[Rfam]
RNA sequence: UAGACCAAUGUGCUAUCUAGCAGCUUUUGAGUCUCAGCUAAUGAAUAACACAUAUCUGCAAGUAUGAGGUCUGA
Numbered sequence: 001u002a003g004a005c006c007a008a009u010g011u012g013c014u015a016u017c018u019a020g021c022a023g024c025u026u027u028u029g030a031g032u033c034u035c036a037g038c039u040a041a042u043g044a045a046u047a048a049c050a051c052a053u054a055u056c057u058g059c060a061a062g063u064a065u066g067a068g069g070u071c072u073g074a
Stems, first nucleotide, its partner, number of pairs: 002072005
The record is a 74-nucleotide sequence from Chinchilla lanigera, which matches "Small nucleolar RNA SNORD113/SNORD114 family" in Rfam. It scores 44 bits against the family's covariance model. By type it is a C/D-box small nucleolar RNA. Rfam's curators write: The imprinted human domain at 14q32 contains two clusters of tandemly repeated small nucleolar RNAs named 14q(I) and 14q(II) snoRNAs. These two clusters are named SNORD113 and SNORD114 respectively in the HGNC approved gene symbol nomenclature. The snoRNAs found in both clusters are clearly related and are represented here by a single family. Lineage of the source: Eukaryota > Deuterostomia > Mammalia > Rodentia > Chinchilla. The literature on the family includes a 2002 paper in Hum Mol Genet by Cavaille et al., "Identification of tandemly-repeated C/D snoRNA genes at the imprinted human 14q32 domain reminiscent of those at the Prader-Willi/Angelman syndrome region". The family's consensus secondary structure is taken from published work. Gene Ontology terms of the family: nucleolus and RNA processing.